Record summary: Rfam assigns this 113-nucleotide RNA from Musa balbisiana to the family "Plastid-psbA-1 3UTR RNA". From the family's description: Plastid psbA-1 is a non-coding RNA (ncRNA) present in plastids. It was identified in inverted repeat sequences in the 3 prime untranslate region (3UTR) of photosystem II quinone-binding protein (psbA). A search with the family's covariance model found it, with a score of 76 bits. The source organism's lineage runs through Eukaryota, Tracheophyta, Magnoliopsida, Zingiberales and Musa.
RNA sequence: UCGACUUUCAUCUACCAAAUGGGUAGAUUUUUGUCUUAGUGUAUACGAAUCGUUGAAAACAAAGUAGCAUAACCCCAUGUCUUGCUUUAGCAAGACAUGGGUAUUGCUACUUU
Dot-bracket structure: .......((((.......))))......................................(((((((((..((.(((.(((((........))))).)))))..)))))))))
Numbered sequence: 001u002c003g004a005c006u007u008u009c010a011u012c013u014a015c016c017a018a019a020u021g022g023g024u025a026g027a028u029u030u031u032u033g034u035c036u037u038a039g040u041g042u043a044u045a046c047g048a049a050u051c052g053u054u055g056a057a058a059a060c061a062a063a064g065u066a067g068c069a070u071a072a073c074c075c076c077a078u079g080u081c082u083u084g085c086u087u088u089a090g091c092a093a094g095a096c097a098u099g100g101g102u103a104u105u106g107c108u109a110c111u112u113u
Stems, first nucleotide, its partner, number of pairs: 008022004061113009072102002075100003079096005